[Rfam]
RNA sequence: CAUAGUUCUCAGGGCGGGGUGCAAUUCCCCACCGGCGGUAAAGGCAGCAAUGCUCAAGCCCGCGAGCGCUUUCGGAUGCAAAUCCGAAGGGUCAGCAGAUCCGGUGUGACUCCGGGGCCGACGGUAUAGUCCGGAUGAAAGAGAACGGGA
Numbered sequence: 001c002a003u004a005g006u007u008c009u010c011a012g013g014g015c016g017g018g019g020u021g022c023a024a025u026u027c028c029c030c031a032c033c034g035g036c037g038g039u040a041a042a043g044g045c046a047g048c049a050a051u052g053c054u055c056a057a058g059c060c061c062g063c064g065a066g067c068g069c070u071u072u073c074g075g076a077u078g079c080a081a082a083u084c085c086g087a088a089g090g091g092u093c094a095g096c097a098g099a100u101c102c103g104g105u106g107u108g109a110c111u112c113c114g115g116g117g118c119c120g121a122c123g124g125u126a127u128a129g130u131c132c133g134g135a136u137g138a139a140a141g142a143g144a145a146c147g148g149g150a
Stems, first nucleotide, its partner, number of pairs: 003148001005146006017029003031130002033120002035063004058118002066096002100116005122133003